[Rfam]
RNA sequence: UUGCUGGUGCAGCGCAGCGCGGACGCCCGAACCUGGUCAGAGCCGGAAGGCAGCAGCCAUAAGGGAUGCUUUGCGGGUGCCGUUGCCUUCCGGCAAUGCU
Numbered sequence: 001u002u003g004c005u006g007g008u009g010c011a012g013c014g015c016a017g018c019g020c021g022g023a024c025g026c027c028c029g030a031a032c033c034u035g036g037u038c039a040g041a042g043c044c045g046g047a048a049g050g051c052a053g054c055a056g057c058c059a060u061a062a063g064g065g066a067u068g069c070u071u072u073g074c075g076g077g078u079g080c081c082g083u084u085g086c087c088u089u090c091c092g093g094c095a096a097u098g099c100u
Stems, first nucleotide, its partner, number of pairs: 004093004009086006015077001018075005026065003034059004042051003
Rfam assigns this 100-nucleotide RNA sequence from Deinococcus radiodurans to the family "Bacterial small signal recognition particle RNA".
Pairs were carried over by alignment from the consensus structure, which is taken from published work.
The sequence is in the family's curated seed alignment.
NCBI's taxonomy places the organism under Bacteria, Deinococcota, Deinococcales, Deinococcus, Deinococcus radiodurans.